[Rfam]
RNA sequence: ACAUUCAAAUAAUUAUUUUUUCAUAUAAUCGCGGGGAUAUGGCCUGCAAGUUUCUACCGGUUUACCGUAAAUGAACCGACUAUGAAAACGUACUGGAAGAGG
Numbered sequence: 001a002c003a004u005u006c007a008a009a010u011a012a013u014u015a016u017u018u019u020u021u022c023a024u025a026u027a028a029u030c031g032c033g034g035g036g037a038u039a040u041g042g043c044c045u046g047c048a049a050g051u052u053u054c055u056a057c058c059g060g061u062u063u064a065c066c067g068u069a070a071a072u073g074a075a076c077c078g079a080c081u082a083u084g085a086a087a088a089c090g091u092a093c094u095g096g097a098a099g100a101g102g
Base pairs, nucleotide, nucleotide: 018088019087020086021085022084023083024082025081029049031047032046033045034044035043058078059077060076061075062074063073064072
The family of this 102-nucleotide RNA from Virgibacillus salexigens is "Purine riboswitch aptamer". It scores 87 bits against the family's covariance model. Gene Ontology term of the family: purine nucleobase biosynthetic process. The family's consensus secondary structure is taken from published work. The organism belongs to Virgibacillus, within Bacteria.